Description:
Glycine riboswitch aptamer: a 90-nucleotide sequence from Ectothiorhodospira magna. Lineage of the source: Bacteria > Gammaproteobacteria > Chromatiales > Ectothiorhodospiraceae > Ectothiorhodospira.
RNA sequence: AUCGACUCUGGAGAGUGGUCCGACAGACCCACCGAAGGGGAUCAUCCGCCACGGAUGUAAUCUCUCAGGUUUCAGGACAGAGGGGCGGCC
Numbered sequence: 001a002u003c004g005a006c007u008c009u010g011g012a013g014a015g016u017g018g019u020c021c022g023a024c025a026g027a028c029c030c031a032c033c034g035a036a037g038g039g040g041a042u043c044a045u046c047c048g049c050c051a052c053g054g055a056u057g058u059a060a061u062c063u064c065u066c067a068g069g070u071u072u073c074a075g076g077a078c079a080g081a082g083g084g085g086c087g088g089c090c
Base pairs, nucleotide, nucleotide: 003085006082007081008080009079010078017029018028019027020026031070032069033068034066035065038064039063040062043057044056045055046054